Rfam assigns this 58-nucleotide RNA sequence from Plantactinospora sp. BB1 to the family "msiK RNA". The family's RNA type in Rfam is cis-regulatory element. The base pairs follow the family's consensus structure, which is taken from published work. It scores 52 bits against the family's covariance model.

[Rfam]
RNA sequence: GCCGGUCGUUCUUUCACUCGGAUCGUCCGGCACGUUCCUGCCGGUGGAAGGAAGCGCU
Dot-bracket structure: .........(((((((..........((((((......))))))))))))).......